[Rfam]
The record is a 134-nucleotide sequence from Catagonus wagneri, which matches "Small nucleolar RNA SNORA31" in Rfam.
From the family's description: ACA31 (SNORA31) belongs to the H/ACA class of snoRNAs which are thought to guide the sites of modification of uridines to pseudouridines.
The family has 5 seed sequences and 2,094 matches in Rfam 15.1.
It is annotated as an H/ACA-box small nucleolar RNA.
The family's consensus secondary structure was predicted with RNAalifold.
The literature on the family includes a 2001 paper in EMBO J by Huttenhofer et al., "RNomics: an experimental approach that identifies 201 candidates for novel, small, non-messenger RNAs in mouse".
RNA sequence: ACGCAUCUAUUUGACAGGCCUGGAGCAGUUACUGUCUGCUAUUCAGGUUUCCACUACAGAUGCAAGAAGAUGAUAUCCUCGCGCUUUCUGUCUGUCUGAUCGUGGCAGCCCAGAUUGAAUGGAGGAAUACAGGG
Numbered sequence: 001a002c003g004c005a006u007c008u009a010u011u012u013g014a015c016a017g018g019c020c021u022g023g024a025g026c027a028g029u030u031a032c033u034g035u036c037u038g039c040u041a042u043u044c045a046g047g048u049u050u051c052c053a054c055u056a057c058a059g060a061u062g063c064a065a066g067a068a069g070a071u072g073a074u075a076u077c078c079u080c081g082c083g084c085u086u087u088c089u090g091u092c093u094g095u096c097u098g099a100u101c102g103u104g105g106c107a108g109c110c111c112a113g114a115u116u117g118a119a120u121g122g123a124g125g126a127a128u129a130c131a132g133g134g
Stems, first nucleotide, its partner, number of pairs: 003063006012053002016050005024040005076126005084117001087114004092108005